Shown here is a 93-nucleotide RNA sequence from Loigolactobacillus coryniformis, a member of the family "SAM-III riboswitch aptamer (SMK box)". Rfam links the family to the GO terms methionine adenosyltransferase activity and regulation of translational initiation.

RNA sequence: UAUGGUUUAUAUUUAGGUUCCCGAAAGGAUUUGUAGUUCGACUACAAAGGUGCCUUGUAACCGAUUAUUUUAAGGGGGAAUAUUUUUCUUAUG
Dot-bracket structure: .................(((((..((((.(((((.........)))))....))))....((...........))))))).............

The family's consensus secondary structure is taken from published work. A reference for the family is Fuchs et al. (2007), "S-adenosylmethionine directly inhibits binding of 30S ribosomal subunits to the SMK box translational riboswitch RNA", Proc Natl Acad Sci U S A. The organism belongs to Loigolactobacillus coryniformis subsp. coryniformis, within Bacteria.